This 76-nucleotide RNA sequence from Syntrophothermus lipocalidus belongs to the Rfam family "Fluoride riboswitch aptamer (crcB RNA motif)". Taxonomically the source falls in Syntrophothermus lipocalidus (Bacteria, Bacillota, Clostridia, Eubacteriales).
RNA sequence: AUUAAUAGUGGUGAUGGCGCCCACCUGAGCCUUUACAGGCUCAAACGGCUAAGUAGCUAAUGGCUCCUGUUAGAUU
Numbered sequence: 001a002u003u004a005a006u007a008g009u010g011g012u013g014a015u016g017g018c019g020c021c022c023a024c025c026u027g028a029g030c031c032u033u034u035a036c037a038g039g040c041u042c043a044a045a046c047g048g049c050u051a052a053g054u055a056g057c058u059a060a061u062g063g064c065u066c067c068u069g070u071u072a073g074a075u076u
Stems, first nucleotide, its partner, number of pairs: 010025004016067002019064003048057003